[Rfam]
RNA sequence: UCGGUGGUUUAGGUAGUUUCAUGUUGUUGGGGCUGGAUCUCAAUCUCUCUCUACAGCACGAAACUGCCUUAAUUACUUC
Dot-bracket structure: ..(((((((.(((((((((..((((((.(((.................))).))))))..))))))))).)))))))..